[Rfam]
Nucleotides: 067
Base pairs, nucleotide, nucleotide: 001067002066003065004064005063
Number, partner (000 for none) and nucleotide at each position: 001067g002066c003065u004064u005063c006000c007000a008000u009000g010000a011000u012000c013000g014000a015000u016000a017000a018000c019000a020000a021000a022000c023000c024000c025000a026000g027000c028000u029000c030000u031000c032000u033000g034000a035000a036000u037000g038000a039000u040000u041000u042000g043000u044000g045000a046000g047000g048000a049000u050000g051000g052000a053000a054000a055000a056000c057000u058000g059000c060000u061000g062000a063005g064004a065003g066002g067001c